RNA sequence: CCCAGAGGUAUUGAUAGGUGGUGUCAGCUUUACGCUUGUCACAACAGUUACACCAACCUGCGCGGAUGCGCAGGUUUUUUUU
Dot-bracket structure: ................((((..((.(((.....))).))...........)))).((((((((....)))))))).......
Record summary
OmrA-B family: an 82-nucleotide sequence from Jejuibacter calystegiae. Lineage of the source: Bacteria > Pseudomonadota > Gammaproteobacteria > Enterobacterales > Jejuibacter. The family's RNA type in Rfam is small RNA. A search with the family's covariance model found it, with a score of 79 bits.